[Rfam]
RNA sequence: UGUGUCAAGGAUAACGGACCGAAGAUGUGAUACUUGACAUAUCAAUUACU
Numbered sequence: 001u002g003u004g005u006c007a008a009g010g011a012u013a014a015c016g017g018a019c020c021g022a023a024g025a026u027g028u029g030a031u032a033c034u035u036g037a038c039a040u041a042u043c044a045a046u047u048a049c050u
Stems, first nucleotide, its partner, number of pairs: 001041009